RNA sequence: GAGAGUAUGUGUUUCUGGUGGGCACCACGGGCUUCAACCCCGAUGUUCGGUAUAGUGCUAUAUCCGAUGGUAGGUUCGAUUCCUUCACUCUCUC
Numbered sequence: 001g002a003g004a005g006u007a008u009g010u011g012u013u014u015c016u017g018g019u020g021g022g023c024a025c026c027a028c029g030g031g032c033u034u035c036a037a038c039c040c041c042g043a044u045g046u047u048c049g050g051u052a053u054a055g056u057g058c059u060a061u062a063u064c065c066g067a068u069g070g071u072a073g074g075u076u077c078g079a080u081u082c083c084u085u086c087a088c089u090c091u092c093u094c
Stems, first nucleotide, its partner, number of pairs: 001092006009025005015020001028042004047067004072084003
Rfam assigns this 94-nucleotide RNA sequence from Arcobacter sp. FWKO B to the family "Selenocysteine transfer RNA". A reference for the family is Lowe and Eddy (1997), "tRNAscan-SE: a program for improved detection of transfer RNA genes in genomic sequence", Nucleic Acids Res. Taxonomically the source falls in Arcobacter (Bacteria, Campylobacterota, Epsilonproteobacteria, Campylobacterales).